[Rfam]
This 80-nucleotide sequence from Neogobius melanostomus belongs to the Rfam family "Small nucleolar RNA SNORD72". The family's RNA type in Rfam is C/D-box small nucleolar RNA. Lineage of the source: Eukaryota > Vertebrata > Actinopterygii > Ctenosquamata > Neogobius. Pairs were carried over by alignment from the consensus structure. snoRNA HBII-240 belongs to the CD family of snoRNAs. It is the human orthologue of the mouse MBII-240 and is predicted to guide 2'O-ribose methylation of the large 28S rRNA at residue U4590.

RNA sequence: AUCUUGCCGAUGAUGUUUUUAUACACAAAUGUCUGAACAUAUGAAUUCAUUGUGAUUCAGCUUUUUAUCUGAGGCAAGAA
Numbered sequence: 001a002u003c004u005u006g007c008c009g010a011u012g013a014u015g016u017u018u019u020u021a022u023a024c025a026c027a028a029a030u031g032u033c034u035g036a037a038c039a040u041a042u043g044a045a046u047u048c049a050u051u052g053u054g055a056u057u058c059a060g061c062u063u064u065u066u067a068u069c070u071g072a073g074g075c076a077a078g079a080a
Stems, first nucleotide, its partner, number of pairs: 002079007